RNA sequence: GCAUCUGAAACUCCCCCACUCCUUGAGGUGCAGUGCUGGACUGGGGACAUGUGAUGAUGCCACAGGAAGGCAGAGGGAAUCCAGACACGAGCUCCCUUUCACCACAGUGGGACUUGUCUCUACGCCUUUGCAACAUUU
Numbered sequence: 001g002c003a004u005c006u007g008a009a010a011c012u013c014c015c016c017c018a019c020u021c022c023u024u025g026a027g028g029u030g031c032a033g034u035g036c037u038g039g040a041c042u043g044g045g046g047a048c049a050u051g052u053g054a055u056g057a058u059g060c061c062a063c064a065g066g067a068a069g070g071c072a073g074a075g076g077g078a079a080u081c082c083a084g085a086c087a088c089g090a091g092c093u094c095c096c097u098u099u100c101a102c103c104a105c106a107g108u109g110g111g112a113c114u115u116g117u118c119u120c121u122a123c124g125c126c127u128u129u130g131c132a133a134c135a136u137u138u
Stems, first nucleotide, its partner, number of pairs: 001060005014046005021039002070131006083119005089113001099110003
RNA: Small nucleolar RNA SNORA55